RNA sequence: CUGUUAAAUAAUGACGUGACAGAUGAAGUGUCAUAUCAUCACGCCCAAUCACUGAUAUGUCAUUGCCAUGUUGUUGAAGGUGAUGACAUGACAAUGAUGCGUCAGUGUUUGGACAUGAUGACGUGACACACUUCGUUUAUCGCGUCAUCACUUAACAGAA
Numbered sequence: 001c002u003g004u005u006a007a008a009u010a011a012u013g014a015c016g017u018g019a020c021a022g023a024u025g026a027a028g029u030g031u032c033a034u035a036u037c038a039u040c041a042c043g044c045c046c047a048a049u050c051a052c053u054g055a056u057a058u059g060u061c062a063u064u065g066c067c068a069u070g071u072u073g074u075u076g077a078a079g080g081u082g083a084u085g086a087c088a089u090g091a092c093a094a095u096g097a098u099g100c101g102u103c104a105g106u107g108u109u110u111g112g113a114c115a116u117g118a119u120g121a122c123g124u125g126a127c128a129c130a131c132u133u134c135g136u137u138u139a140u141c142g143c144g145u146c147a148u149c150a151c152u153u154a155a156c157a158g159a160a
Base pairs, nucleotide, nucleotide: 001158002157003156004155005154006153007152009150011148012147013146014145015144016143017142018141019140021138022137023136024135025134026133027132028131029130030127031126032125033124034123036121037120038119039118040117041116043114045112046111048109050107051106052105054103055102056101058099070087071086072085073084074083
RNA: MIR4371 microRNA precursor family
Organism: Glycine soja